[Rfam]
RNA sequence: UGCCUAAACUUUGCAAAAGCGAAGCAUGGCACAAUAAGAAAUUCCCGACCAAGAUAGCAACCUCCUCAUCAGGAGACGCUCUUGGUCGGGUCGUAGUCAUCGAAAGAUGCUAUGGGCAGUUCGAAAGGGCUGUC
Numbered sequence: 001u002g003c004c005u006a007a008a009c010u011u012u013g014c015a016a017a018a019g020c021g022a023a024g025c026a027u028g029g030c031a032c033a034a035u036a037a038g039a040a041a042u043u044c045c046c047g048a049c050c051a052a053g054a055u056a057g058c059a060a061c062c063u064c065c066u067c068a069u070c071a072g073g074a075g076a077c078g079c080u081c082u083u084g085g086u087c088g089g090g091u092c093g094u095a096g097u098c099a100u101c102g103a104a105a106g107a108u109g110c111u112a113u114g115g116g117c118a119g120u121u122c123g124a125a126a127g128g129g130c131u132g133u134c
Stems, first nucleotide, its partner, number of pairs: 001031004009024006044090011057079002061075001063073002092114005098109003115134008
Dot-bracket structure: ((((....((((((....))))))...))))............(((((((((((..((..(.((.......)).)..))))))))))))).(((((.(((......))))))))((((((((....))))))))
LOOT RNA: a 134-nucleotide RNA sequence. The family's RNA type in Rfam is small RNA.